Annotation: The record is a 113-nucleotide RNA from Desulfosporosinus acididurans, which matches "pan motif" in Rfam. The family's RNA type in Rfam is cis-regulatory element. It scores 39 bits against the family's covariance model. NCBI's taxonomy places the organism under Bacteria, Bacillati, Bacillota, Eubacteriales, Desulfosporosinus.
[Rfam]
RNA sequence: CCGACGACAUCGAAAGAGUUGUACGGUGGUUUUGGUGUCAACGAAUGAAUCAUGCCUACCAAACUAAUACUAUUGCAUAAACACCGCUUGGAUCAUUGGACCGAGACGGAGGG
Numbered sequence: 001c002c003g004a005c006g007a008c009a010u011c012g013a014a015a016g017a018g019u020u021g022u023a024c025g026g027u028g029g030u031u032u033u034g035g036u037g038u039c040a041a042c043g044a045a046u047g048a049a050u051c052a053u054g055c056c057u058a059c060c061a062a063a064c065u066a067a068u069a070c071u072a073u074u075g076c077a078u079a080a081a082c083a084c085c086g087c088u089u090g091g092a093u094c095a096u097u098g099g100a101c102c103g104a105g106a107c108g109g110a111g112g113g
Base pairs, nucleotide, nucleotide: 001026002025003024004022005021006020007019008018010017011016084109085108086107087105088104089103090102091101093100094099